[Rfam]
Rfam assigns this 113-nucleotide sequence from Psychrilyobacter sp. S5 to the family "FMN riboswitch aptamer (RFN element)". Lineage of the source: Bacteria > Fusobacteriota > Fusobacteriales > Fusobacteriaceae > Psychrilyobacter. The family's consensus secondary structure is taken from published work.

Nucleotides: 113
Stems, first nucleotide, its partner, number of pairs: 003111001005109006017029003031093002033083002035049004044081002052059002063079005085096003
Number, partner (000 for none) and nucleotide at each position: 001000a002000u003111a004000a005109a006108a007107c008106u009105u010104c011000g012000g013000g014000g015000c016000a017029g018028g019027g020000u021000g022000u023000g024000a025000u026000u027019c028018c029017c030000u031093a032092c033083c034082g035049g036048c037047g038046g039000u040000g041000a042000u043000a044081g045080u046038c047037c048036g049035c050000g051000a052059g053058c054000u055000u056000a057000g058053g059052c060000c061000g062000a063079a064078u065077c066076a067075g068000u069000g070000g071000a072000a073000u074000u075067c076066u077065g078064a079063u080045a081044c082034c083033g084000a085096c086095a087094g088000u089000a090000g091000a092032g093031u094087c095086u096085g097000g098000a099000u100000g101000a102000u103000a104010g105009a106008a107007g108006u109005u110000a111003u112000u113000u